[Rfam]
RNA sequence: CUGAUGACCCCGUGAUGCUGGCGGACCCCCGACCUGGCAGCAUCACGGGGUUUCCAA
Number, nucleotide and partner (000 for none) at each position: 001c000002u056003g055004a000005u000006g000007a051008c050009c049010c048011c047012g046013u045014g044015a043016u042017g041018c040019u039020g038021g000022c036023g000024g000025a000026c000027c000028c000029c000030c000031g000032a000033c000034c000035u000036g022037g000038c020039a019040g018041c017042a016043u015044c014045a013046c012047g011048g010049g009050g008051u007052u000053u000054c000055c003056a002057a000
The record is a 57-nucleotide sequence from Prauserella shujinwangii, which matches "F6 TB sRNA" in Rfam. NCBI's taxonomy places the organism under Bacteria, Bacillati, Actinomycetota, Actinomycetes, Prauserella. It is annotated as a small RNA. The base pairs follow the family's consensus structure, which is taken from published work. A reference for the family is Arnvig and Young (2009), "Identification of small RNAs in Mycobacterium tuberculosis", Mol Microbiol.